[Rfam]
Nucleotides: 084
Stems, first nucleotide, its partner, number of pairs: 001082004007076001010073002014071001017068007024059002027055006036048001038047003
Number, partner (000 for none) and nucleotide at each position: 001082g002081g003080g004079g005000a006000g007076g008000c009000c010073g011072g012000a013000u014071c015000c016000u017068g018067g019066c020065u021064g022063u023062g024059u025058c026000c027055c028054g029053g030052c031051g032050c033000c034000c035000u036048g037000u038047g039046c040045u041000c042000c043000g044000a045040g046039g047038c048036c049000u050032g051031u052030g053029u054028u055027g056000u057000u058025g059024a060000u061000u062023u063022g064021c065020g066019g067018c068017u069000c070000c071014g072011c073010c074000c075000c076007c077000a078000g079004c080003u081002c082001c083000c084000u